A member of the RNA family "Plastid-psbA-3 3UTR RNA", 56 nucleotides long. About the family: Plastid psbA-3 is a non-coding RNA (ncRNA) present in plastids. The literature on the family includes a 2023 paper in Plant Commun by Richter et al., "Retrograde signaling in plants: A critical review focusing on the GUN pathway and beyond". The family's RNA type in Rfam is cis-regulatory element.
RNA sequence: UAAGGAGCAAUAAGCCCUCUUGAUAGAACAAGAAAAAGUUUAUUGCUCCAUAUAUA
Numbered sequence: 001u002a003a004g005g006a007g008c009a010a011u012a013a014g015c016c017c018u019c020u021u022g023a024u025a026g027a028a029c030a031a032g033a034a035a036a037a038g039u040u041u042a043u044u045g046c047u048c049c050a051u052a053u054a055u056a
Base pairs, nucleotide, nucleotide: 001052002051004049005048006047007046008045009044010043011042012041013040014039018033019032020031021030022029